[Rfam]
A member of the RNA family "S10-Clostridia ribosomal protein leader", 94 nucleotides long.

Nucleotides: 094
Stems, first nucleotide, its partner, number of pairs: 014060003018056004025050011068093004074089004
Number, partner (000 for none) and nucleotide at each position: 001000a002000g003000a004000g005000a006000g007000c008000g009000u010000u011000g012000a013000u014060u015059u016058g017000a018056a019055a020054g021053g022000u023000u024000g025050c026049u027048u028047u029046g030045a031044u032043u033042u034041c035040u036000u037000a038000a039000a040035a041034g042033g043032a044031a045030u046029c047028a048027a049026a050025g051000g052000u053021u054020u055019u056018u057000u058016c059015a060014a061000g062000g063000a064000g065000c066000g067000a068093u069092g070091u071090c072000c073000a074089g075088u076087u077086c078000a079000u080000g081000a082000a083000a084000u085000g086077g087076g088075a089074c090071g091070a092069c093068a094000a